[Rfam]
RNA sequence: UUUUGGGUGAGGUGUGAGUACAGAAAAGCUAUCACCUCAGA
Numbered sequence: 001u002u003u004u005g006g007g008u009g010a011g012g013u014g015u016g017a018g019u020a021c022a023g024a025a026a027a028g029c030u031a032u033c034a035c036c037u038c039a040g041a
Base pairs, nucleotide, nucleotide: 001041002040003039005037006036007035008034009032011030012029013028

This 41-nucleotide sequence from Notamacropus eugenii belongs to the Rfam family "MAT2A 3'UTR stem loop D". Taxonomically the source falls in Notamacropus (Eukaryota, Opisthokonta, Vertebrata, Euteleostomi). For this family Rfam cites "New families of human regulatory RNA structures identified by comparative analysis of vertebrate genomes" (Parker et al., Genome Res, 2011). By type it is a cis-regulatory element. Pairs were carried over by alignment from the consensus structure, which is taken from published work. The sequence is in the family's curated seed alignment.